[Rfam]
RNA sequence: UUGAUCAUGUGAUGAAAUCAGAAAUAAAUCUUAGGACACCUUCCUACACUGCUCUCUGGAGCUGUGGAUGAGAAAGACAUUUCUAUUCUGAUGAUGAA
Number, nucleotide and partner (000 for none) at each position: 001u098002u097003g000004a095005u094006c093007a092008u000009g000010u000011g000012a000013u000014g000015a000016a000017a000018u000019c000020a000021g000022a000023a000024a000025u000026a000027a000028a000029u000030c000031u000032u000033a000034g000035g000036a000037c000038a000039c000040c000041u000042u000043c000044c051045u000046a000047c000048a000049c000050u000051g044052c000053u000054c000055u000056c000057u000058g000059g000060a000061g000062c000063u000064g000065u000066g000067g000068a000069u000070g000071a000072g000073a000074a000075a000076g000077a000078c000079a000080u000081u000082u000083c000084u000085a000086u000087u000088c000089u000090g000091a000092u007093g006094a005095u004096g000097a002098a001